[Rfam]
Nucleotides: 117
Base pairs, nucleotide, nucleotide: 007057008056010054011053012052015047016046020044021043022041023038024037025036026035027034028033058090059089060088061087062086063085064084092112094115098110099109100108
Number, partner (000 for none) and nucleotide at each position: 001000c002000a003000a004000a005000a006000a007057g008056a009000c010054a011053a012052c013000u014000a015047g016046g017000g018000u019000u020044c021043c022041g023038a024037c025036u026035u027034u028033u029000u030000u031000a032000c033028a034027a035026g036025a037024g038023u039000g040000u041022c042000u043021g044020g045000u046016c047015c048000a049000a050000g051000a052012g053011u054010u055000a056008u057007c058090g059089g060088c061087c062086a063085a064084a065000c066000u067000g068000g069000u070000u071000u072000a073000c074000c075000u076000a077000a078000a079000c080000u081000u082000c083000a084064u085063u086062u087061g088060g089059c090058u091000a092112c093000a094115c095000g096000g097000a098110g099109g100108g101000a102000u103000a104000a105000a106000a107000g108100c109099c110098c111000g112092g113000g114000a115094g116000g117000c